A member of the RNA family "MIR812 microRNA precursor family" from Oryza punctata, 165 nucleotides long. The match comes from Rfam's covariance-model search (83 bits). Gene Ontology terms of the family: RISC complex and miRNA-mediated post-transcriptional gene silencing. Lineage of the source: Eukaryota > Embryophyta > Mesangiospermae > commelinids > Oryza.

RNA sequence: AAUAAGUGCAGUCGUGGAUUUUCAAAUUCAACGUUUGACCAUUCGUCUUAUUUAAAAAAUUAUAAAAUAAUUAAAAAGGUCACACAAAAAUACUAAUCAUAAAAAAUUUUCAAAUAAGAUAAACGGUCAAACGUUGGAUAUGAAUAGUGCAAGAUUACACUUAUU
Number, nucleotide and partner (000 for none) at each position: 001a000002a000003u000004a000005a000006g000007u000008g000009c000010a000011g000012u000013c000014g000015u000016g000017g000018a000019u000020u000021u000022u000023c000024a000025a000026a000027u138028u137029c136030a135031a134032c133033g000034u131035u130036u129037g128038a127039c126040c125041a000042u123043u122044c000045g120046u119047c118048u117049u116050a115051u114052u000053u000054a000055a000056a000057a000058a000059a000060u000061u000062a000063u000064a000065a000066a000067a000068u000069a000070a000071u000072u000073a000074a000075a000076a000077a000078g000079g000080u000081c000082a000083c000084a000085c000086a000087a000088a000089a000090a000091u000092a000093c000094u000095a000096a000097u000098c000099a000100u000101a000102a000103a000104a000105a000106a000107u000108u000109u000110u000111c000112a000113a000114a051115u050116a049117a048118g047119a046120u045121a000122a043123a042124c000125g040126g039127u038128c037129a036130a035131a034132c000133g032134u031135u030136g029137g028138a027139u000140a000141u000142g000143a000144a000145u000146a000147g000148u000149g000150c000151a000152a000153g000154a000155u000156u000157a000158c000159a000160c000161u000162u000163a000164u000165u000